[Rfam]
RNA sequence: AUCGGCAUCGCUGAUGAGCGCUGGAAAACAUCUGUCGCUCGCAAUUGCCGCAAUCGCUUUCUGCUUUUGACCACGGAUGUACUGGCACUGGUACGGCAGCGAUGUGAGGAAGGUCGGCGCGGUCUCGCCCCGGCCUUUUUUGUU
Numbered sequence: 001a002u003c004g005g006c007a008u009c010g011c012u013g014a015u016g017a018g019c020g021c022u023g024g025a026a027a028a029c030a031u032c033u034g035u036c037g038c039u040c041g042c043a044a045u046u047g048c049c050g051c052a053a054u055c056g057c058u059u060u061c062u063g064c065u066u067u068u069g070a071c072c073a074c075g076g077a078u079g080u081a082c083u084g085g086c087a088c089u090g091g092u093a094c095g096g097c098a099g100c101g102a103u104g105u106g107a108g109g110a111a112g113g114u115c116g117g118c119g120c121g122g123u124c125u126c127g128c129c130c131c132g133g134c135c136u137u138u139u140u141u142g143u144u
Stems, first nucleotide, its partner, number of pairs: 003050004007045002016040005053103006062093004068087002071085003104143014119128003

The record is a 144-nucleotide RNA sequence from Rhizobium etli, which matches "Alphaproteobacterial sRNA ar35" in Rfam. The organism belongs to Rhizobium etli, within Bacteria. The pairing is the family consensus, mapped onto this sequence. The family has 13 seed sequences and 266 matches in Rfam 15.1. Rfam classes the family as a small RNA.